RNA sequence: ACGAUCCCGGCGGGAGAGCGUCCUGGCAGCCGGCCAGGACCCCUGAAGGAGCAAGCCCUCCCCGCGAACCUCUCAAGGCAAAGGACCGCCCGGGGCAG
Numbered sequence: 001a002c003g004a005u006c007c008c009g010g011c012g013g014g015a016g017a018g019c020g021u022c023c024u025g026g027c028a029g030c031c032g033g034c035c036a037g038g039a040c041c042c043c044u045g046a047a048g049g050a051g052c053a054a055g056c057c058c059u060c061c062c063c064g065c066g067a068a069c070c071u072c073u074c075a076a077g078g079c080a081a082a083g084g085a086c087c088g089c090c091c092g093g094g095g096c097a098g
Base pairs, nucleotide, nucleotide: 006093007092009090010089011088012087013086020040021039022038023037024036025035042078043077044076045074046073049072050071051070055065056064

Shown here is a 98-nucleotide sequence from Spongiactinospora gelatinilytica, a member of the family "Glycine riboswitch aptamer". Gene Ontology term of the family: glycine biosynthetic process. About the family: This family represents the bacterial glycine riboswitch. Glycine riboswitches usually consist of two metabolite-binding aptamers domains with similar structures in tandem. The aptamers cooperatively bind glycine to regulate the expression of downstream genes. In Bacillus subtilis, this riboswitch is found upstream of the gcvT operon which controls glycine degradation. It scores 63 bits against the family's covariance model.